Source information: A member of the RNA family "Guanidine-II riboswitch aptamer (mini-ykkC)" from Microvirga sp. BSC39, 47 nucleotides long. The organism belongs to Microvirga, within Bacteria. Pairs were carried over by alignment from the consensus structure, which is taken from published work. Simpler in structure and has fewer highly conserved nucleotide positions than the ykkC-yxkD leader. Despite this each of its two stem-loop structures directly bind free guanidine. Therefore, mini-ykkC RNA motif represents a distinct class of guanidine-sensing RNAs. Its crystal structure was also determined. It scores 40 bits against the family's covariance model.

[Rfam]
RNA sequence: GGGCGAGGACGACCUCGCCUUCAUGACAAACGGUAGGGACGGCCCUG
Numbered sequence: 001g002g003g004c005g006a007g008g009a010c011g012a013c014c015u016c017g018c019c020u021u022c023a024u025g026a027c028a029a030a031c032g033g034u035a036g037g038g039a040c041g042g043c044c045c046u047g
Stems, first nucleotide, its partner, number of pairs: 001020008034047005